[Rfam]
RNA sequence: GUAACAAAGUAGAGGCAACACACUUCUCACCUCAUUUCUUAUGGAGAUAGGUAAAUAUUUGAUGAACAAUGUUCGUUAGUAUUUUUUUGCAGGUGGAGUGUUUCUACCUGCAAUUUUUUUAUAUG
Numbered sequence: 001g002u003a004a005c006a007a008a009g010u011a012g013a014g015g016c017a018a019c020a021c022a023c024u025u026c027u028c029a030c031c032u033c034a035u036u037u038c039u040u041a042u043g044g045a046g047a048u049a050g051g052u053a054a055a056u057a058u059u060u061g062a063u064g065a066a067c068a069a070u071g072u073u074c075g076u077u078a079g080u081a082u083u084u085u086u087u088u089g090c091a092g093g094u095g096g097a098g099u100g101u102u103u104c105u106a107c108c109u110g111c112a113a114u115u116u117u118u119u120u121a122u123a124u125g
Stems, first nucleotide, its partner, number of pairs: 011027005029052003035047004088112010

A member of the RNA family "Ribosomal protein L20 leader" from Acetobacterium bakii, 125 nucleotides long. The family's RNA type in Rfam is cis-regulatory leader. About the family: This family is a putative r-protein leader autoregulatory structure found in B. subtilis and other low-GC Gram-positive bacteria. For this family Rfam cites "Diverse mechanisms for regulating ribosomal protein synthesis in Escherichia coli" (Zengel and Lindahl, Prog Nucleic Acid Res Mol Biol, 1994).